[Rfam]
RNA sequence: GACUGUAUGUGAUGAAUUUUGUUUAUAAAACAAUGGGAAUCUCUCUGAAAAAGAGUGAAAGAGGACUUUCUUCUGACACAGCC
Numbered sequence: 001g002a003c004u005g006u007a008u009g010u011g012a013u014g015a016a017u018u019u020u021g022u023u024u025a026u027a028a029a030a031c032a033a034u035g036g037g038a039a040u041c042u043c044u045c046u047g048a049a050a051a052a053g054a055g056u057g058a059a060a061g062a063g064g065a066c067u068u069u070c071u072u073c074u075g076a077c078a079c080a081g082c083c
Stems, first nucleotide, its partner, number of pairs: 001083001003081004
Shown here is an 83-nucleotide RNA from Cyprinodon variegatus, a member of the family "Small nucleolar RNA SNORD79".
The family is grouped with related families in Rfam's "SNORD74 clan".
Rfam links the family to the GO terms nucleolus and RNA processing.
The literature on the family includes a 2002 paper in Mol Cell Biol by Galardi et al., "Purified box C/D snoRNPs are able to reproduce site-specific 2'-O-methylation of target RNA in vitro".
The organism belongs to Cyprinodon, within Eukaryota.
snoRNA U79 or Z22 is found in intron 7 of the gas5 gene in humans and is also present in mice.
The base pairs follow the family's consensus structure, which was predicted with PFOLD.
Rfam 15.1 lists 784 matches to the family in 651 species.